[Rfam]
RNA sequence: CUCCCGUUCCAGGGGAGCCCCGGUAGGGGGCUGAGAGUCCGACUGGCCAUACGGCCGACGCGGAGACCCUCAGAACCUGAUCCGGCUCGUACCGGCGUAGGGAGGGGACAGUCAGGCCCGA
Numbered sequence: 001c002u003c004c005c006g007u008u009c010c011a012g013g014g015g016a017g018c019c020c021c022g023g024u025a026g027g028g029g030g031c032u033g034a035g036a037g038u039c040c041g042a043c044u045g046g047c048c049a050u051a052c053g054g055c056c057g058a059c060g061c062g063g064a065g066a067c068c069c070u071c072a073g074a075a076c077c078u079g080a081u082c083c084g085g086c087u088c089g090u091a092c093c094g095g096c097g098u099a100g101g102g103a104g105g106g107g108a109c110a111g112u113c114a115g116g117c118c119c120g121a
Stems, first nucleotide, its partner, number of pairs: 006109005011070004017031005038064004076101004082095004
Shown here is a 121-nucleotide RNA sequence from Caenispirillum bisanense, a member of the family "TPP riboswitch aptamer (THI element)". Rfam links the family to the GO term thiamine pyrophosphate binding. A search with the family's covariance model found it, with a score of 67 bits. Lineage of the source: Bacteria > Pseudomonadati > Alphaproteobacteria > Novispirillaceae > Caenispirillum.